A member of the RNA family "Clostridiales-1 RNA" from Butyrivibrio sp. INlla14, 167 nucleotides long. It is annotated as a small RNA. NCBI's taxonomy places the organism under Bacteria, Bacillati, Lachnospirales, Lachnospiraceae, Butyrivibrio. A search with the family's covariance model found it, with a score of 109 bits.

RNA sequence: UGAUAUAGGUGUCAAAAUUCAAAAUGCUUACAUGCUCGCAUGCUAAGCAUUUUGAAUUUAUGACCCGAACAAAUAUGAGGAAUAAGCAAUUUACGAAGUAAAUUAGCGAUUUACGAAUAUUUGUAGAAUUGCGUGAGUUUCGAAGAAACAAAGCAAUUCGUAUAUCA
Dot-bracket structure: (((((((...(((.(((((((((((((((.((((....))))..)))))))))))))))..)))....((((((((..(.((...(((((((((...))))))).))...)).)..)))))))).(((((((....((((.....))))...))))))).)))))))